[Rfam]
RNA sequence: CCCCCAAGGGGAAGCGAAGACCCUAUAGAGCUUUACUGCAGGCUGUCGCUGAGACAUGGUCGCUAAUGUGCAGCAUAGGUAGGAGCCGUUACACAGGUACCCGCGCUAGCGGGCCACCGAGGCAUCAGUGAAAUACUACCCGUUAGUGACUGUGACUCUCACUCCGGGAGGAGGACACCGAUAGCCGGGCAGUUUGACUGGGGCGGUACGCGCUCGAAAAGAUAUCGAGCGCGCCCUAAGUCCAUCUCAUCCGGGUCAGGAAUCCGGAGAAGAGCGCAAGAGCAAAAGAUGGGCUGACAGUGUCGUGCCUAACGAGCGACGCUGACGCGAAAGCGCGGUCUAGCGAUCUUAUGUGCCCGCCCGAUGCGGGCCAUAAGUGACAGAAAAGCUACCUUAGGGAUAACAGAGUCGUCACCGGCAAGAGCACAUAUCGACCCGGUGGCUUGCUACCUCGAUGUCGGUUCCCUCCAUCCUGCCCGUGCAGCAGCGGGCAAGGGUGAGGUUGUUCGCCUAUUAAAGGAGGUCGUGAGCUGGGUUUAGACCGUCGUGAGACAGGUCGGCUGCUAUCUAUUGGGGGUGUUU
Numbered sequence: 001c002c003c004c005c006a007a008g009g010g011g012a013a014g015c016g017a018a019g020a021c022c023c024u025a026u027a028g029a030g031c032u033u034u035a036c037u038g039c040a041g042g043c044u045g046u047c048g049c050u051g052a053g054a055c056a057u058g059g060u061c062g063c064u065a066a067u068g069u070g071c072a073g074c075a076u077a078g079g080u081a082g083g084a085g086c087c088g089u090u091a092c093a094c095a096g097g098u099a100c101c102c103g104c105g106c107u108a109g110c111g112g113g114c115c116a117c118c119g120a121g122g123c124a125u126c127a128g129u130g131a132a133a134u135a136c137u138a139c140c141c142g143u144u145a146g147u148g149a150c151u152g153u154g155a156c157u158c159u160c161a162c163u164c165c166g167g168g169a170g171g172a173g174g175a176c177a178c179c180g181a182u183a184g185c186c187g188g189g190c191a192g193u194u195u196g197a198c199u200g201g202g203g204c205g206g207u208a209c210g211c212g213c214u215c216g217a218a219a220a221g222a223u224a225u226c227g228a229g230c231g232c233g234c235c236c237u238a239a240g241u242c243c244a245u246c247u248c249a250u251c252c253g254g255g256u257c258a259g260g261a262a263u264c265c266g267g268a269g270a271a272g273a274g275c276g277c278a279a280g281a282g283c284a285a286a287a288g289a290u291g292g293g294c295u296g297a298c299a300g301u302g303u304c305g306u307g308c309c310u311a312a313c314g315a316g317c318g319a320c321g322c323u324g325a326c327g328c329g330a331a332a333g334c335g336c337g338g339u340c341u342a343g344c345g346a347u348c349u350u351a352u353g354u355g356c357c358c359g360c361c362c363g364a365u366g367c368g369g370g371c372c373a374u375a376a377g378u379g380a381c382a383g384a385a386a387a388g389c390u391a392c393c394u395u396a397g398g399g400a401u402a403a404c405a406g407a408g409u410c411g412u413c414a415c416c417g418g419c420a421a422g423a424g425c426a427c428a429u430a431u432c433g434a435c436c437c438g439g440u441g442g443c444u445u446g447c448u449a450c451c452u453c454g455a456u457g458u459c460g461g462u463u464c465c466c467u468c469c470a471u472c473c474u475g476c477c478c479g480u481g482c483a484g485c486a487g488c489g490g491g492c493a494a495g496g497g498u499g500a501g502g503u504u505g506u507u508c509g510c511c512u513a514u515u516a517a518a519g520g521a522g523g524u525c526g527u528g529a530g531c532u533g534g535g536u537u538u539a540g541a542c543c544g545u546c547g548u549g550a551g552a553c554a555g556g557u558c559g560g561c562u563g564c565u566a567u568c569u570a571u572u573g574g575g576g577g578u579g580u581u582u
Stems, first nucleotide, its partner, number of pairs: 001577007010569003014564002022398004027394002029390005035193004042185007051158003055154014078140005085123003100113005162173004196209001197207003210232006235338002241293006247273002250268006274283002298324009326335001328333001349376005355371005407448003411445001412442007422432002459534001460532004464526001465523005472497002476491005500512004540558004544553003

A member of the RNA family "Archaeal large subunit ribosomal RNA" from Halomarina oriensis, 582 nucleotides of a longer RNA. A search with the family's covariance model found it, with a score of 2860 bits. NCBI's taxonomy places the organism under Archaea, Methanobacteriota, Halobacteria, Halobacteriales, Halomarina. The family's consensus secondary structure is taken from published work.